[Rfam]
RNA sequence: AUGGGCGUCUUACCAGACACGGUUAGAUCUGGGUUCUGGUGUCUAAUACUGUCUGGUAAUGCCGUUCAU
Numbered sequence: 001a002u003g004g005g006c007g008u009c010u011u012a013c014c015a016g017a018c019a020c021g022g023u024u025a026g027a028u029c030u031g032g033g034u035u036c037u038g039g040u041g042u043c044u045a046a047u048a049c050u051g052u053c054u055g056g057u058a059a060u061g062c063c064g065u066u067c068a069u
Stems, first nucleotide, its partner, number of pairs: 002068006009061001010059010022047006
RNA: mir-8/mir-141/mir-200 microRNA precursor family
Organism: Canis lupus